[Rfam]
RNA sequence: GCACCACUGUGUAUUAUGGCUUUUUAUUCCUAUGUGAUGAUGAUAAAUGUUCAUGUAGGAACAGAAGCCAUUUUACACGUGGCGA
Numbered sequence: 001g002c003a004c005c006a007c008u009g010u011g012u013a014u015u016a017u018g019g020c021u022u023u024u025u026a027u028u029c030c031u032a033u034g035u036g037a038u039g040a041u042g043a044u045a046a047a048u049g050u051u052c053a054u055g056u057a058g059g060a061a062c063a064g065a066a067g068c069c070a071u072u073u074u075a076c077a078c079g080u081g082g083c084g085a
Base pairs, nucleotide, nucleotide: 002084004082005081006080007079009078010077011076012075013074016071017070018069019068020067021066022065023064027061028060029059030058031057032056033055034054035053036052037051
A member of the RNA family "mir-135 microRNA precursor family" from Oryzias melastigma, 85 nucleotides long. A search with the family's covariance model found it, with a score of 70 bits. Pairs were carried over by alignment from the consensus structure, which was predicted with PFOLD.